Annotation: Shown here is a 111-nucleotide RNA sequence from Streptococcus iniae, a member of the family "Streptococcus sRNA SSRC41". It is annotated as a small RNA.
[Rfam]
RNA sequence: AAGCUCAAUAAUUGGGCUUUUUUUCUGUGCCUUUAACCUAGAUUUCUUGUUAAUUUAAAAAAAAUAAGCUAUAAUAAAGCAUAGUACUUAGUUUAGAAAGAAGGUGUAGGU
Numbered sequence: 001a002a003g004c005u006c007a008a009u010a011a012u013u014g015g016g017c018u019u020u021u022u023u024u025c026u027g028u029g030c031c032u033u034u035a036a037c038c039u040a041g042a043u044u045u046c047u048u049g050u051u052a053a054u055u056u057a058a059a060a061a062a063a064a065u066a067a068g069c070u071a072u073a074a075u076a077a078a079g080c081a082u083a084g085u086a087c088u089u090a091g092u093u094u095a096g097a098a099a100g101a102a103g104g105u106g107u108a109g110g111u
Base pairs, nucleotide, nucleotide: 003080004079005078008075015070016069017068018067019066021064022063023062024061034049035048084107085106086105087104088103089102